This 118-nucleotide RNA sequence from Leucobacter sp. OH1287 belongs to the Rfam family "SAM (S-adenosyl methionine) riboswitch aptamer". Pairs were carried over by alignment from the consensus structure, which is taken from published work. It scores 66 bits against the family's covariance model. Rfam describes the family as follows. SAM-IV is a mRNA element that regulates gene expression via direct sensing of S-adenosylmethionine (SAM or AdoMet). SAM-IV riboswitches share conserved nucleotide positions with the previously described SAM-I riboswitches sequence analysis and molecular recognition experiments suggest that SAM-I and SAM-IV riboswitches share similar ligand binding sites, but have different scaffolds.
[Rfam]
RNA sequence: GUUCAAGAGUUGCAGCGUCAAGUACCUGGCUAGCUGCACAGCAACCCGAUAUCCAUCGAUUUCCGGGUGCUCCAGGGCGAGAACGGGCUCACGAAGAAUCGUGAUGCAAGAGUCGAUG
Dot-bracket structure: ((((....(.((((((....((.......)).)))))))(((..(((.(............)..))).))).........))))..((((((((....)))))).))...........